The family of this 127-nucleotide sequence from Coffea canephora is "U11 spliceosomal RNA". A search with the family's covariance model found it, with a score of 78 bits.
RNA sequence: UAAAAGGGUCGGUUGGCUAAAUAUGCCACUCUUACCCGCGUUGGUGAGAGCUGUAUGGCUAUCAAGACAUAUGGCCGACAUAAUUUGUGGAGCCCUGUAGGGUUGGCUCGCUUGGCCGACCCUCCAU
Numbered sequence: 001u002a003a004a005a006g007g008g009u010c011g012g013u014u015g016g017c018u019a020a021a022u023a024u025g026c027c028a029c030u031c032u033u034a035c036c037c038g039c040g041u042u043g044g045u046g047a048g049a050g051c052u053g054u055a056u057g058g059c060u061a062u063c064a065a066g067a068c069a070u071a072u073g074g075c076c077g078a079c080a081u082a083a084u085u086u087g088u089g090g091a092g093c094c095c096u097g098u099a100g101g102g103u104u105g106g107c108u109c110g111c112u113u114g115g116c117c118g119a120c121c122c123u124c125c126a127u
Base pairs, nucleotide, nucleotide: 008079009078010077011076012075014028015027016026017025029050030049031048032047033046034045035044036043051074052073053072054071055070056069057068097125099123100122101121102120103119104118105117106116107115108114

Description:
Its family is annotated with U11 snRNP, pre-mRNA 5'-splice site binding and mRNA 5'-splice site recognition in the Gene Ontology. The base pairs follow the family's consensus structure, which is taken from published work. The organism belongs to Coffea, within Eukaryota.